[Rfam]
RNA sequence: AUGCACCCUGUUUCGUAGGAAUCACUAACAAAUAGUGUUAGCCUUUGAGCGAGGGUGCACAAAGAAACAGCUGCGUUUUUUUGAACGCAGUAGUGGCUAGACAACCGUGGGGAUGCAUCCACAGAUGGGCAACCCAAAAAUGCUGCGUGUCUACUAAUUACAUCUCGCAUUU
Number, nucleotide and partner (000 for none) at each position: 001a000002u059003g058004c057005a056006c055007c000008c000009u051010g050011u049012u000013u048014c047015g046016u000017a044018g043019g042020a000021a000022u041023c000024a039025c000026u037027a036028a000029c000030a000031a000032a000033u000034a000035g000036u027037g026038u000039u024040a000041g022042c019043c018044u017045u000046u015047g014048a013049g011050c010051g009052a000053g000054g000055g006056u005057g004058c003059a002060c000061a000062a000063a000064g000065a000066a000067a000068c000069a000070g000071c000072u000073g000074c000075g000076u000077u000078u000079u000080u000081u000082u000083g000084a000085a000086c000087g000088c000089a000090g000091u000092a000093g000094u000095g000096g000097c000098u000099a000100g000101a000102c000103a000104a000105c000106c000107g000108u000109g000110g166111g165112g164113a163114u162115g161116c000117a159118u000119c000120c000121a000122c000123a000124g000125a000126u000127g000128g148129g146130c145131a144132a000133c000134c000135c000136a000137a000138a000139a000140a000141u000142g000143c000144u131145g130146c129147g000148u128149g000150u000151c000152u000153a000154c000155u000156a000157a000158u000159u117160a000161c115162a114163u113164c112165u111166c110167g000168c000169a000170u000171u000172u000
RNA: small nucleolar RNA snoR143
Organism: Carnegiea gigantea